[Rfam]
RNA sequence: GCCCGGGUGACGCAAUUGGUUAGCGUGUCAGACUUUUACACAAGAGUGAAAUCUGAAAGUUGCGAGUUCGAGUCUCGCCUCGGGCG
Numbered sequence: 001g002c003c004c005g006g007g008u009g010a011c012g013c014a015a016u017u018g019g020u021u022a023g024c025g026u027g028u029c030a031g032a033c034u035u036u037u038a039c040a041c042a043a044g045a046g047u048g049a050a051a052u053c054u055g056a057a058a059g060u061u062g063c064g065a066g067u068u069c070g071a072g073u074c075u076c077g078c079c080u081c082g083g084g085c086g
Stems, first nucleotide, its partner, number of pairs: 001085007010026004028056005062078005
Shown here is an 86-nucleotide RNA sequence from Fusarium irregulare, a member of the family "tRNA".
The literature on the family includes a 1993 paper in Trends Biochem Sci by Hou, "The tertiary structure of tRNA and the development of the genetic code".
NCBI's taxonomy places the organism under Eukaryota, Dikarya, Hypocreomycetidae, Hypocreales, Fusarium incarnatum-equiseti species complex.